The record is a 108-nucleotide RNA from Rhododendron simsii, which matches "Small nucleolar RNA snoR100" in Rfam. Its family is annotated with nucleolus and RNA processing in the Gene Ontology. It scores 60 bits against the family's covariance model.
RNA sequence: GAAUGAAGGAAGUAAUGUAAUGAGCGCAAAAAUUGAAUUGGGUUUAUGGGUCUGUCCUCUCUGAGGCCUUCAAGCUUUGAUUUGGGGGCAUGGAUCCACGGCAUAACA
Number, nucleotide and partner (000 for none) at each position: 001g000002a000003a000004u000005g000006a000007a000008g000009g000010a000011a000012g025013u024014a000015a000016u000017g000018u000019a000020a000021u000022g000023a000024g013025c012026g000027c000028a000029a000030a000031a000032a000033u000034u000035g000036a000037a000038u000039u000040g091041g000042g089043u088044u087045u000046a000047u000048g000049g000050g081051u080052c079053u000054g075055u074056c000057c000058u000059c000060u000061c000062u000063g000064a000065g000066g000067c000068c000069u000070u000071c000072a000073a000074g055075c054076u000077u000078u000079g052080a051081u050082u000083u000084g000085g000086g000087g044088g043089c042090a000091u040092g000093g000094a000095u000096c000097c000098a000099c000100g000101g000102c000103a000104u000105a000106a000107c000108a000